[Rfam]
RNA: TPP riboswitch aptamer (THI element)
RNA sequence: ACCUUAUCCGGGGGGAGCCCUUUGCUGGGCUGAGAGGCAGGGAAUCGGCCCUGCGACCCCUUGAACCUGAUCCGGGUCAUGCCGGCGAAGGGAUCGGAGGUUGUUCUUGGC
Numbered sequence: 001a002c003c004u005u006a007u008c009c010g011g012g013g014g015g016a017g018c019c020c021u022u023u024g025c026u027g028g029g030c031u032g033a034g035a036g037g038c039a040g041g042g043a044a045u046c047g048g049c050c051c052u053g054c055g056a057c058c059c060c061u062u063g064a065a066c067c068u069g070a071u072c073c074g075g076g077u078c079a080u081g082c083c084g085g086c087g088a089a090g091g092g093a094u095c096g097g098a099g100g101u102u103g104u105u106c107u108u109g110g111c
Base pairs, nucleotide, nucleotide: 007098008097009096010095011060012059013058014057017030018029019028020027037054038053039052040051041050066091067090068089072085073084074083075082